[Rfam]
RNA sequence: GCAAUACGGGCAAGUCUUACACGACCAGCUCCUUUCGAAUCCUCCAGGAUAGGAAUAUAGCAAAGGUAGAAGGUUGAGCGGUGCGAUGUAAGUAGCUUGUCCACCC
Dot-bracket structure: .......((((((((.(((((((((.......................................................)).)).)))))...))))))))....
Numbered sequence: 001g002c003a004a005u006a007c008g009g010g011c012a013a014g015u016c017u018u019a020c021a022c023g024a025c026c027a028g029c030u031c032c033u034u035u036c037g038a039a040u041c042c043u044c045c046a047g048g049a050u051a052g053g054a055a056u057a058u059a060g061c062a063a064a065g066g067u068a069g070a071a072g073g074u075u076g077a078g079c080g081g082u083g084c085g086a087u088g089u090a091a092g093u094a095g096c097u098u099g100u101c102c103a104c105c106c
Stems, first nucleotide, its partner, number of pairs: 008102008017091005022085002024082002
Shown here is a 106-nucleotide RNA from Prevotella sp. oral taxon 299, a member of the family "Bacteroidales small SRP". The match comes from Rfam's covariance-model search (103 bits). Its family is annotated with signal recognition particle, plasma membrane targeting and SRP-dependent cotranslational protein targeting to membrane, signal sequence recognition in the Gene Ontology. It is annotated as a non-coding RNA gene. The organism belongs to Prevotella sp. oral taxon 299, within Bacteria. A reference for the family is Ryan et al. (2020), "A high-resolution transcriptome map identifies small RNA regulation of metabolism in the gut microbe Bacteroides thetaiotaomicron", Nat Commun.